Rfam assigns this 105-nucleotide RNA sequence from Punica granatum to the family "MIR398 microRNA precursor family".
The base pairs follow the family's consensus structure, which was predicted with WAR.
The match comes from Rfam's covariance-model search (63 bits).

[Rfam]
RNA sequence: GGGCACCCUAAAGGGGUGCUAUCUGAUAACACAGGAAAUUGCCCUCUGAUAUCUUCUCCCCUCUGCAUUUUUCCUGUGUUUUCAGGUCACCCCUUCGGGGUACCC
Numbered sequence: 001g002g003g004c005a006c007c008c009u010a011a012a013g014g015g016g017u018g019c020u021a022u023c024u025g026a027u028a029a030c031a032c033a034g035g036a037a038a039u040u041g042c043c044c045u046c047u048g049a050u051a052u053c054u055u056c057u058c059c060c061c062u063c064u065g066c067a068u069u070u071u072u073c074c075u076g077u078g079u080u081u082u083c084a085g086g087u088c089a090c091c092c093c094u095u096c097g098g099g100g101u102a103c104c105c
Base pairs, nucleotide, nucleotide: 007099008098011095012094013093014092016090017089018088025083026082028080029079030078031077032076033075034074